Overview
This 86-nucleotide RNA sequence from Hymenochirus boettgeri belongs to the Rfam family "Selenocysteine transfer RNA". Pairs were carried over by alignment from the consensus structure, which is taken from published work. For this family Rfam cites "Eukaryotic selenocysteine tRNA has the 9/4 secondary structure" (Mizutani and Goto, FEBS Lett, 2000). The match comes from Rfam's covariance-model search (55 bits).
[Rfam]
RNA sequence: CCCAGAUGAGCCUCCAGUGGUCUGGGGUGCAGGCUUCAAACCUGUAGCUGUCUAGCGACAGAGUGGAUUUCAUUCCACCCUCUGGC
Numbered sequence: 001c002c003c004a005g006a007u008g009a010g011c012c013u014c015c016a017g018u019g020g021u022c023u024g025g026g027g028u029g030c031a032g033g034c035u036u037c038a039a040a041c042c043u044g045u046a047g048c049u050g051u052c053u054a055g056c057g058a059c060a061g062a063g064u065g066g067a068u069u070u071c072a073u074u075c076c077a078c079c080c081u082c083u084g085g086c
Stems, first nucleotide, its partner, number of pairs: 002085005008079001012027006028046006048061005064077004